[Rfam]
RNA sequence: GCGAGACGGGUGGGCCGGUGACCGAGGGCGACCGAUAAACUGUCCCCGGACGUCGCCGGGUGCAGCUCCCCGCUUCGUCCGACCAUGAUCAGCCAGCAGCCGCUGCAACCCCAGGGAG
Numbered sequence: 001g002c003g004a005g006a007c008g009g010g011u012g013g014g015c016c017g018g019u020g021a022c023c024g025a026g027g028g029c030g031a032c033c034g035a036u037a038a039a040c041u042g043u044c045c046c047c048g049g050a051c052g053u054c055g056c057c058g059g060g061u062g063c064a065g066c067u068c069c070c071c072g073c074u075u076c077g078u079c080c081g082a083c084c085a086u087g088a089u090c091a092g093c094c095a096g097c098a099g100c101c102g103c104u105g106c107a108a109c110c111c112c113a114g115g116g117a118g
Base pairs, nucleotide, nucleotide: 048080049079050078051077052076056072058070059069060068094105095104096103097102